[Rfam]
RNA sequence: CAUUGCAGGCAACCGAGCCAGCGAUGGUUAGGAAAGUCCAUGCUAGCACAGGCUGCGAUCGCCUGUAGUGAUUGUGAUAGAGGAAACCAUAACUCUAUGCACCCGAGAGGGUGACGGCUGAGAAAGAGGCUUAUCAAGUCUUGAGUAUCUUUAAAAGUGCCACAGAGACGAGCUCUUUUAGCAAUAAAAGAGGUGGAACGGGUAAACCCCGCAAGCUAGAAACCCAAAUUUUGGUAGGGGCACUUGGCGUGAGAAACUGAACUUAACGCCGAGGUACGAUUUUGUACAGAUAAAUGGUUGCCACCCUUUUUAAAGGGUACAGAACAUGGCUUAUGCA
Number, nucleotide and partner (000 for none) at each position: 001c000002a000003u000004u337005g336006c335007a334008g302009g301010c300011a299012a298013c297014c296015g000016a029017g028018c027019c026020a025021g000022c000023g000024a000025u020026g019027g018028u017029u016030a000031g000032g000033a000034a332035a331036g330037u000038c329039c328040a327041u326042g325043c219044u218045a217046g216047c215048a066049c065050a064051g063052g062053c061054u000055g000056c000057g000058a000059u000060c000061g053062c052063c051064u050065g049066u048067a000068g000069u000070g000071a000072u214073u213074g212075u211076g210077a098078u097079a096080g095081a094082g093083g000084a000085a000086a000087c000088c000089a000090u000091a000092a000093c082094u081095c080096u079097a078098u077099g115100c113101a112102c111103c110104c109105g000106a000107g000108a000109g104110g103111g102112u101113g100114a000115c099116g209117g208118c000119u000120g149121a148122g000123a000124a000125a000126g000127a141128g140129g139130c138131u000132u000133a000134u000135c000136a000137a000138g130139u129140c128141u127142u000143g000144a000145g000146u000147a000148u121149c120150u000151u000152u000153a000154a000155a000156a000157g207158u206159g203160c202161c201162a000163c000164a000165g000166a000167g000168a000169c000170g000171a000172g000173c192174u191175c190176u189177u188178u187179u186180a185181g000182c000183a000184a000185u180186a179187a178188a177189a176190g175191a174192g173193g000194u000195g000196g000197a000198a000199c000200g000201g161202g160203u159204a000205a000206a158207c157208c117209c116210c076211g075212c074213a073214a072215g047216c046217u045218a044219g043220a000221a000222a000223c239224c238225c237226a000227a000228a000229u000230u000231u000232u000233g000234g000235u000236a000237g225238g224239g223240g000241c000242a000243c273244u272245u271246g270247g269248c268249g267250u000251g000252a000253g000254a000255a000256a000257c000258u000259g000260a000261a000262c000263u000264u000265a000266a000267c249268g248269c247270c246271g245272a244273g243274g287275u286276a285277c284278g283279a000280u000281u000282u000283u278284g277285u276286a275287c274288a000289g000290a000291u000292a000293a000294a000295u000296g014297g013298u012299u011300g010301c009302c008303a000304c317305c316306c315307u314308u313309u000310u000311u000312a000313a308314a307315g306316g305317g304318u000319a000320c000321a000322g000323a000324a000325c042326a041327u040328g039329g038330c036331u035332u034333a000334u007335g006336c005337a004
This 337-nucleotide sequence belongs to the Rfam family "Bacterial RNase P class B". Rfam's curators put it in the seed alignment. The base pairs follow the family's consensus structure, which is taken from published work. The family's RNA type in Rfam is ribozyme. Rfam's curators write: Ribonuclease P (RNase P) is a ubiquitous endoribonuclease, found in archaea, bacteria and eukarya as well as chloroplasts and mitochondria.